RNA: MIR1120/MIR1122 microRNA precursor family
RNA sequence: UUACUCCCACCAUAAACUAAUAUAAGAGUGUUUAGAUCACUAACCUAGUGAUCUAAAUGCUCUUAUAUUAGUUUACGGAGGGAGUAC
Number, nucleotide and partner (000 for none) at each position: 001u000002u000003a085004c084005u083006c000007c081008c080009a000010c078011c077012a000013u075014a074015a073016a072017c071018u000019a069020a068021u067022a066023u065024a064025a063026g062027a061028g060029u059030g058031u057032u056033u055034a054035g053036a052037u051038c050039a049040c048041u047042a000043a000044c000045c000046u000047a041048g040049u039050g038051a037052u036053c035054u034055a033056a032057a031058u030059g029060c028061u027062c026063u025064u024065a023066u022067a021068u020069u019070a000071g017072u016073u015074u014075a013076c000077g011078g010079a000080g008081g007082g000083a005084g004085u003086a000087c000